[Rfam]
RNA sequence: UGAAGAUAGCCAAAUCUGAGCAUUAGAAGUCCUUCUAGUCUAUGUGAUGCAGGAUUUCUAUAGUUCUGAGA
Numbered sequence: 001u002g003a004a005g006a007u008a009g010c011c012a013a014a015u016c017u018g019a020g021c022a023u024u025a026g027a028a029g030u031c032c033u034u035c036u037a038g039u040c041u042a043u044g045u046g047a048u049g050c051a052g053g054a055u056u057u058c059u060a061u062a063g064u065u066c067u068g069a070g071a
Stems, first nucleotide, its partner, number of pairs: 020050005028041002031038001

Small nucleolar RNA U2-19: a 71-nucleotide RNA from Rousettus aegyptiacus. The family's RNA type in Rfam is C/D-box small nucleolar RNA. Gene Ontology terms of the family: RNA processing and nucleolus. The family has 29 seed sequences and 1,147 matches in Rfam 15.1. The family's consensus secondary structure is taken from published work. The match comes from Rfam's covariance-model search (66 bits). On this family, see Tycowski et al., Curr Biol 2004: "Guide RNAs with 5' Caps and Novel Box C/D snoRNA-like Domains for Modification of snRNAs in Metazoa".